[Rfam]
RNA sequence: CUCUGUAUUCUUCCACAGCUUUCUUGAACUGCAACCUUCUUCAGAUUAGUUUUUUUUUCCUCGUAUAUCUACUGUCAUAGCAGAUAUGUGUUAAUUUAAAUUGCAUCUGUUCGAUUGAUUUGCGGUUCAAUAAAGCUGUGGGAAGAUACAGACA
Numbered sequence: 001c002u003c004u005g006u007a008u009u010c011u012u013c014c015a016c017a018g019c020u021u022u023c024u025u026g027a028a029c030u031g032c033a034a035c036c037u038u039c040u041u042c043a044g045a046u047u048a049g050u051u052u053u054u055u056u057u058u059c060c061u062c063g064u065a066u067a068u069c070u071a072c073u074g075u076c077a078u079a080g081c082a083g084a085u086a087u088g089u090g091u092u093a094a095u096u097u098a099a100a101u102u103g104c105a106u107c108u109g110u111u112c113g114a115u116u117g118a119u120u121u122g123c124g125g126u127u128c129a130a131u132a133a134a135g136c137u138g139u140g141g142g143a144a145g146a147u148a149c150a151g152a153c154a
Base pairs, nucleotide, nucleotide: 003151004150005149006148007147013141014140015139017137018136019135020134021133022132024130025129026128027127029125030124031123032122033121
Rfam assigns this 154-nucleotide sequence from Brassica carinata to the family "MIR396 microRNA precursor family".